[Rfam]
RNA sequence: AGCACGUGUUCAAUUUUUGUCUGUUGCUGUAGACAAAAACCUGGAACCGAGUGCUUAGAAAAAAACCCUUCUUUUGCAACCCACAGCUGAUGAACACCCAUUGGUUGUGUUACAUGUAUGAAGGGACAGU
Numbered sequence: 001a002g003c004a005c006g007u008g009u010u011c012a013a014u015u016u017u018u019g020u021c022u023g024u025u026g027c028u029g030u031a032g033a034c035a036a037a038a039a040c041c042u043g044g045a046a047c048c049g050a051g052u053g054c055u056u057a058g059a060a061a062a063a064a065a066c067c068c069u070u071c072u073u074u075u076g077c078a079a080c081c082c083a084c085a086g087c088u089g090a091u092g093a094a095c096a097c098c099c100a101u102u103g104g105u106u107g108u109g110u111u112a113c114a115u116g117u118a119u120g121a122a123g124g125g126a127c128a129g130u
Stems, first nucleotide, its partner, number of pairs: 001055005007049002010045001014039007025031001066125003072121002075118002082109010